[Rfam]
RNA sequence: CCGUGCUAGGCGGGGAGGUAGCGGUGCCCUGUAACUCGCAAUCCGCUAUAGCGAGACUGAAUCCCGAUUCGAGGGAGUGCAUUGGUGUGGCCUGUCCUCGUGUAAGUGGCGUUGACGUCUGAGUCCUGCGCAACGGUCACCCAUGAACCAGGUCAGGUCCGGAAGGAAGCAGCCUUAAGUGGUGACGUACCGUGUGCCGCAGGGGUGCUUGGGCCGAGCAAACUGCAUGAGUAACGCACAUUGACGUGCUUUCAGAAAUCGGUGCGCGG
Numbered sequence: 001c002c003g004u005g006c007u008a009g010g011c012g013g014g015g016a017g018g019u020a021g022c023g024g025u026g027c028c029c030u031g032u033a034a035c036u037c038g039c040a041a042u043c044c045g046c047u048a049u050a051g052c053g054a055g056a057c058u059g060a061a062u063c064c065c066g067a068u069u070c071g072a073g074g075g076a077g078u079g080c081a082u083u084g085g086u087g088u089g090g091c092c093u094g095u096c097c098u099c100g101u102g103u104a105a106g107u108g109g110c111g112u113u114g115a116c117g118u119c120u121g122a123g124u125c126c127u128g129c130g131c132a133a134c135g136g137u138c139a140c141c142c143a144u145g146a147a148c149c150a151g152g153u154c155a156g157g158u159c160c161g162g163a164a165g166g167a168a169g170c171a172g173c174c175u176u177a178a179g180u181g182g183u184g185a186c187g188u189a190c191c192g193u194g195u196g197c198c199g200c201a202g203g204g205g206u207g208c209u210u211g212g213g214c215c216g217a218g219c220a221a222a223c224u225g226c227a228u229g230a231g232u233a234a235c236g237c238a239c240a241u242u243g244a245c246g247u248g249c250u251u252u253c254a255g256a257a258a259u260c261g262g263u264g265c266g267c268g269g
Base pairs, nucleotide, nucleotide: 001269002268003267004266005265006264009058010057012030013029014028015027017025019023035055036054037053038052039051064262065261066260067259068258069257073253074252075251076250077249080246082244083243084242085241086240087239088238089237093233094232098230099229100228101227102226103225106223107222109219110218117214118213119212120211121210122209123208124207125203126202127201128200129199130198131194132193134192135191136190137189138187141182142181143180144179150175151174152173153172158167159166160165